Source information
A member of the RNA family "RtT RNA" from Yersinia enterocolitica, 128 nucleotides long.
Nucleotides: 128
Stems, first nucleotide, its partner, number of pairs: 015119007022111001032091002035089002041086004048058002065079002068076003
Number, partner (000 for none) and nucleotide at each position: 001000a002000u003000a004000g005000c006000a007000c008000c009000c010000a011000u012000c013000a014000g015119g016118g017117g018116a019115a020114g021113g022111u023000a024000a025000g026000a027000a028000c029000c030000u031000u032091c033090g034000a035089c036088c037000a038000a039000g040000g041086u042085u043084c044083g045000c046000g047000c048058c049057g050000a051000g052000c053000a054000u055000a056000g057049c058048g059000a060000g061000a062000c063000a064000a065079c066078g067000a068076c069075g070074c071000g072000c073000a074070g075069c076068g077000g078066c079065g080000g081000c082000c083044c084043g085042a086041a087000g088036g089035g090033c091032g092000a093000g094000g095000a096000a097000c098000a099000a100000c101000g102000u103000g104000a105000c106000g107000a108000g109000u110000a111022a112000u113021c114020c115019u116018u117017c118016c119015c120000c121000c122000a123000c124000c125000a126000c127000c128000a
The family's consensus secondary structure is taken from published work.